The family of this 82-nucleotide RNA from Paulinella micropora is "tRNA".
[Rfam]
Nucleotides: 082
Stems, first nucleotide, its partner, number of pairs: 001081005007075001010026003028044005058074005
Number, partner (000 for none) and nucleotide at each position: 001081g002080c003079c004078c005077a006000a007075c008000u009000g010026g011025c012024g013000g014000a015000a016000u017000u018000g019000g020000u021000a022000g023000a024012c025011g026010c027000g028044c029043u030042g031041g032040u033000u034000u035000u036000a037000g038000g039000u040032a041031c042030c043029a044028g045000u046000g047000g048000c049000u050000u051000c052000g053000g054000u055000c056000g057000u058074g059073g060072g061071g062070g063000u064000u065000c066000a067000a068000g069000u070062c071061c072060c073059c074058c075007g076000g077005u078004g079003g080002g081001c082000a
It scores 49 bits against the family's covariance model.
By type it is a transfer RNA.